[Rfam]
RNA sequence: GCAGGCAAAUGAUGUAGACAAAUUCUUAUCCUACACACUGAAGUAAAUGUAGAUUACUACUCCGCUUAUUAUCUGAUGCCUUG
Number, nucleotide and partner (000 for none) at each position: 001g000002c000003a081004g080005g079006c078007a077008a000009a000010u000011g000012a000013u000014g000015u000016a000017g000018a000019c000020a000021a000022a000023u000024u000025c000026u000027u000028a000029u000030c000031c000032u000033a000034c000035a000036c000037a000038c000039u000040g000041a000042a000043g000044u000045a000046a000047a000048u000049g000050u000051a000052g000053a000054u000055u000056a000057c000058u000059a000060c000061u000062c000063c000064g000065c000066u000067u000068a000069u000070u000071a000072u000073c000074u000075g000076a000077u007078g006079c005080c004081u003082u000083g000
RNA: Small nucleolar RNA R16
Organism: Momordica charantia